[Rfam]
RNA sequence: GUAAGAAAUCUUAACAGUUUUCCGCAAAACGCGUAAAAACUGAAAAGAUUUGUUACAG
Number, nucleotide and partner (000 for none) at each position: 001g056002u055003a054004a053005g000006a051007a050008a049009u048010c047011u046012u045013a000014a000015c042016a041017g040018u039019u038020u037021u036022c000023c033024g032025c000026a000027a000028a000029a000030c000031g000032c024033g023034u000035a000036a021037a020038a019039a018040c017041u016042g015043a000044a000045a012046a011047g010048a009049u008050u007051u006052g000053u004054u003055a002056c001057a000058g000
The family of this 58-nucleotide sequence from Diploscapter pachys is "mir-255 microRNA precursor family". A reference for the family is Ruby et al. (2006), "Large-scale sequencing reveals 21U-RNAs and additional microRNAs and endogenous siRNAs in C. elegans", Cell. Pairs were carried over by alignment from the consensus structure, which was predicted with RNAalifold.